[Rfam]
RNA sequence: AUUUGAAAAAGGCAAACUAAUUGAAAGAUUAGGACGCAAAGCUAAGAAGUCUAAGGCACAACAAAUUAAUGCUACGAUAGUUCAGCUGCUAAA
Numbered sequence: 001a002u003u004u005g006a007a008a009a010a011g012g013c014a015a016a017c018u019a020a021u022u023g024a025a026a027g028a029u030u031a032g033g034a035c036g037c038a039a040a041g042c043u044a045a046g047a048a049g050u051c052u053a054a055g056g057c058a059c060a061a062c063a064a065a066u067u068a069a070u071g072c073u074a075c076g077a078u079a080g081u082u083c084a085g086c087u088g089c090u091a092a093a
Stems, first nucleotide, its partner, number of pairs: 012037002017032006040087004046083003049078003056072003